[Rfam]
RNA sequence: UACAGGGUAGACUGAUAAGCGUCAAGUGUUGUAGAAACGGAAUGUGAGCUACAAACGAAGGAAUUUCCCGCGAUUUAUCAGUCACAUUCACUGUA
Numbered sequence: 001u002a003c004a005g006g007g008u009a010g011a012c013u014g015a016u017a018a019g020c021g022u023c024a025a026g027u028g029u030u031g032u033a034g035a036a037a038c039g040g041a042a043u044g045u046g047a048g049c050u051a052c053a054a055a056c057g058a059a060g061g062a063a064u065u066u067c068c069c070g071c072g073a074u075u076u077a078u079c080a081g082u083c084a085c086a087u088u089c090a091c092u093g094u095a
Base pairs, nucleotide, nucleotide: 001095002094003093004092005091010083011082012081013080014079015078016077017076018075019074020072021071022070026056027055029054030053031052032051033050034049040089041088042087043086044085060069061068
THF (Tetrahydrofolate) riboswitch aptamer: a 95-nucleotide sequence from Weissella halotolerans.
The base pairs follow the family's consensus structure, which is taken from published work.
Taxonomically the source falls in Weissella halotolerans (Bacteria, Bacillati, Bacillota, Weissella).
Tetrahydrofolate (THF) riboswitch was first reported for Ames et al. as an RNA motif in 5' untranslated (5'-UTR)regions of folate transport and biosynthesis genes in Firmicutes genomes.
Rfam 15.1 lists 747 matches to the family in 747 species.